RNA sequence: UAUAUUUGCACCCGAAUUGGAAUAAUAUCCAUUUCAUACAUAAUAAUCAUUUAAAAUAAUAUUAGCAUG
Numbered sequence: 001u002a003u004a005u006u007u008g009c010a011c012c013c014g015a016a017u018u019g020g021a022a023u024a025a026u027a028u029c030c031a032u033u034u035c036a037u038a039c040a041u042a043a044u045a046a047u048c049a050u051u052u053a054a055a056a057u058a059a060u061a062u063u064a065g066c067a068u069g
Base pairs, nucleotide, nucleotide: 014035015034016033018031019030

Rfam assigns this 69-nucleotide sequence to the family "S15-Flavobacteria ribosomal protein leader". Rfam's curators put it in the seed alignment. The family's RNA type in Rfam is cis-regulatory leader.